[Rfam]
RNA sequence: CAGUUGAAUUUGAGAAUUGGAUGGAACCAAAUCUUAACGCAGAGUACAAGAUUUGGUUUACUCCAAUAUCUCAUGUUCAGCUG
Dot-bracket structure: ...(((((..((((.((((((..(((((((.((................)).)))))))..))))))..))))..)))))...
Numbered sequence: 001c002a003g004u005u006g007a008a009u010u011u012g013a014g015a016a017u018u019g020g021a022u023g024g025a026a027c028c029a030a031a032u033c034u035u036a037a038c039g040c041a042g043a044g045u046a047c048a049a050g051a052u053u054u055g056g057u058u059u060a061c062u063c064c065a066a067u068a069u070c071u072c073a074u075g076u077u078c079a080g081c082u083g
Stems, first nucleotide, its partner, number of pairs: 004080005011073004016067006024059007032051002